Nucleotides: 080
Base pairs, nucleotide, nucleotide: 001080002079003078004077005076
Number, partner (000 for none) and nucleotide at each position: 001080u002079u003078a004077g005076g006000g007000u008000u009000u010000a011000u012000g013000a014000a015000c016000u017000a018000a019000g020000u021000c022000a023000a024000u025000c026000g027000g028000a029000u030000u031000c032000c033000c034000a035000a036000u037000g038000a039000u040000a041000u042000a043000u044000c045000c046000g047000u048000g049000a050000u051000u052000u053000c054000u055000u056000c057000u058000u059000u060000g061000a062000u063000c064000a065000g066000c067000u068000a069000c070000u071000c072000c073000u074000g075000a076005c077004c078003u079002a080001a